[Rfam]
The record is a 54-nucleotide sequence from Pristimantibacillus lignocellulolyticus, which matches "Streptococcus sRNA SpF59 (ldcC RNA)" in Rfam.
By type it is a small RNA.
On this family, see Mann et al., PLoS Pathog 2012: "Control of virulence by small RNAs in Streptococcus pneumoniae".

RNA sequence: UGACCACUUCUAACAAGAAGUUAUGGCCAUACGGACAGCCCGGUCAAAUGCCGA
Numbered sequence: 001u002g003a004c005c006a007c008u009u010c011u012a013a014c015a016a017g018a019a020g021u022u023a024u025g026g027c028c029a030u031a032c033g034g035a036c037a038g039c040c041c042g043g044u045c046a047a048a049u050g051c052c053g054a
Base pairs, nucleotide, nucleotide: 001046002045003044004043005042006021007020008019009018010017011016